[Rfam]
Overview: Shown here is a 99-nucleotide RNA from Leifsonia sp. CL147, a member of the family "mraW RNA".

RNA sequence: CGGCGUCCCUGACGCCCGACUCCCAGCCAUACGCCCUGACGCCACUUCCCCGGUGUCAGGUCGGGAUGGAUGGGGAUCCGGAAUCAGGGGCACAGCGAC
Numbered sequence: 001c002g003g004c005g006u007c008c009c010u011g012a013c014g015c016c017c018g019a020c021u022c023c024c025a026g027c028c029a030u031a032c033g034c035c036c037u038g039a040c041g042c043c044a045c046u047u048c049c050c051c052g053g054u055g056u057c058a059g060g061u062c063g064g065g066a067u068g069g070a071u072g073g074g075g076a077u078c079c080g081g082a083a084u085c086a087g088g089g090g091c092a093c094a095g096c097g098a099c
Stems, first nucleotide, its partner, number of pairs: 010086003015081002018078002021075005027069004032063002035060008

The family has 45 seed sequences and 851 matches in Rfam 15.1. By type it is a cis-regulatory element. The base pairs follow the family's consensus structure, which is taken from published work.